[Rfam]
RNA sequence: CCAGCACCUACCCCGACGGGGGGAAAAGCGGGAUAGUCCACCCGCCUGGUGCUGGCACUUAUUGAAUGG
Numbered sequence: 001c002c003a004g005c006a007c008c009u010a011c012c013c014c015g016a017c018g019g020g021g022g023g024a025a026a027a028g029c030g031g032g033a034u035a036g037u038c039c040a041c042c043c044g045c046c047u048g049g050u051g052c053u054g055g056c057a058c059u060u061a062u063u064g065a066a067u068g069g
Stems, first nucleotide, its partner, number of pairs: 001055008011022004028045005037068001
The family of this 69-nucleotide RNA sequence from Advenella faeciporci is "int-alpA RNA".
Acidobacteria (1 example), Planctomycetes (1 example), Proteobacteria.
A search with the family's covariance model found it, with a score of 63 bits.